[Rfam]
Rfam assigns this 37-nucleotide sequence from Anabaena sp. FACHB-1237 to the family "CRISPR RNA direct repeat element". Rfam 15.1 lists 201 matches to the family in 33 species. The organism belongs to Anabaena, within Bacteria. The match comes from Rfam's covariance-model search (41 bits). Its family is annotated with defense response in the Gene Ontology.
RNA sequence: UUUUCAACCCACCCGGUACUAGGAGGGUUGUUGUUAC
Numbered sequence: 001u002u003u004u005c006a007a008c009c010c011a012c013c014c015g016g017u018a019c020u021a022g023g024a025g026g027g028u029u030g031u032u033g034u035u036a037c
Stems, first nucleotide, its partner, number of pairs: 005033004009027002013023002
Dot-bracket structure: ....((((((..((.......))..))..))))....